[Rfam]
Shown here is a 127-nucleotide RNA sequence from Shimwellia blattae, a member of the family "RtT RNA". For this family Rfam cites "A novel RNA product of the tyrT operon of Escherichia coli" (Bosl and Kersten, Nucleic Acids Res, 1991). Rfam links the family to the GO term cellular response to amino acid starvation.
Nucleotides: 127
Stems, first nucleotide, its partner, number of pairs: 015118007023110001033093001036090001040088001041086002046057002064081002068077002
Number, partner (000 for none) and nucleotide at each position: 001000g002000c003000u004000a005000u006000g007000c008000g009000c010000u011000g012000a013000c014000c015118g016117u017116g018115c019114a020113g021112g022000g023110u024000u025000c026000g027000a028000a029000c030000c031000u032000g033093c034000a035000g036090c037000a038000g039000g040088u041086c042085g043000a044000g045000u046057c047056g048000a049000g050000c051000c052000c053000u054000g055000g056047c057046g058000a059000g060000a061000c062000a063000a064081c065080g066000g067000a068077g069076c070000c071000g072000u073000a074000a075000g076069g077068c078000g079000a080065c081064g082000g083000c084000c085042c086041g087000u088040a089000g090036g091000g092000c093033g094000a095000g096000g097000c098000g099000c100000a101000a102000g103000c104000c105000g106000g107000g108000u109000c110023a111000u112021c113020c114019u115018g116017c117016a118015c119000g120000a121000c122000c123000c124000a125000c126000c127000a